[Rfam]
RNA sequence: GCCACUCUGGAAAGUGAUGCGUGCAUCCGCCGACGGUGAAAGCCCCCAAUCUGGGGCGAAACUCUCAGGCCCAUGACAGAGGGGGAGUU
Numbered sequence: 001g002c003c004a005c006u007c008u009g010g011a012a013a014g015u016g017a018u019g020c021g022u023g024c025a026u027c028c029g030c031c032g033a034c035g036g037u038g039a040a041a042g043c044c045c046c047c048a049a050u051c052u053g054g055g056g057c058g059a060a061a062c063u064c065u066c067a068g069g070c071c072c073a074u075g076a077c078a079g080a081g082g083g084g085g086a087g088u089u
Base pairs, nucleotide, nucleotide: 002084003083005081006080007079008078009077016027017026018025019024029070030069031068032066033065036064038062042057043056044055045054046053
Notes
Rfam assigns this 89-nucleotide sequence from Microbacterium sp. CH12i to the family "Glycine riboswitch aptamer". Its family is annotated with glycine biosynthetic process in the Gene Ontology. This family represents the bacterial glycine riboswitch. Glycine riboswitches usually consist of two metabolite-binding aptamers domains with similar structures in tandem. The aptamers cooperatively bind glycine to regulate the expression of downstream genes. In Bacillus subtilis, this riboswitch is found upstream of the gcvT operon which controls glycine degradation.